[Rfam]
RNA sequence: ACUAUAAAUUAGCCGAAUGCAUACGCAGCGGAGGAUGCAUCUUUGGGGUGAAGCACAUCUGUGCAGGGAUUCCUCUUCCCGAACCCGUCAACUAACUUCGCAGGCUAUUAGGAGGAAAAAC
Numbered sequence: 001a002c003u004a005u006a007a008a009u010u011a012g013c014c015g016a017a018u019g020c021a022u023a024c025g026c027a028g029c030g031g032a033g034g035a036u037g038c039a040u041c042u043u044u045g046g047g048g049u050g051a052a053g054c055a056c057a058u059c060u061g062u063g064c065a066g067g068g069a070u071u072c073c074u075c076u077u078c079c080c081g082a083a084c085c086c087g088u089c090a091a092c093u094a095a096c097u098u099c100g101c102a103g104g105c106u107a108u109u110a111g112g113a114g115g116a117a118a119a120a121c
Stems, first nucleotide, its partner, number of pairs: 011106004018027003028101006038045002046086003054063003066080004
Dot-bracket structure: ..........((((...(((....)))((((((....((....))(((.....(((....)))..((((.......))))...))).........)))))).))))...............
RNA: c-di-AMP riboswitch aptamer (ydaO/yuaA leader)